[Rfam]
RNA sequence: CGCAGCCGUGCGGGAGAGUCCCGGGGAUGCAGGUCUUUUCGAAGACAGGCAGAAUCCGGGCGCCGAAGGAGCAGCACCUCCCCGUCAAUCUCUCAGGCACAAGGGACCGUGCGGAGUUU
Numbered sequence: 001c002g003c004a005g006c007c008g009u010g011c012g013g014g015a016g017a018g019u020c021c022c023g024g025g026g027a028u029g030c031a032g033g034u035c036u037u038u039u040c041g042a043a044g045a046c047a048g049g050c051a052g053a054a055u056c057c058g059g060g061c062g063c064c065g066a067a068g069g070a071g072c073a074g075c076a077c078c079u080c081c082c083c084g085u086c087a088a089u090c091u092c093u094c095a096g097g098c099a100c101a102a103g104g105g106a107c108c109g110u111g112c113g114g115a116g117u118u119u
Stems, first nucleotide, its partner, number of pairs: 006114008020060006062098003065094002069092003076085002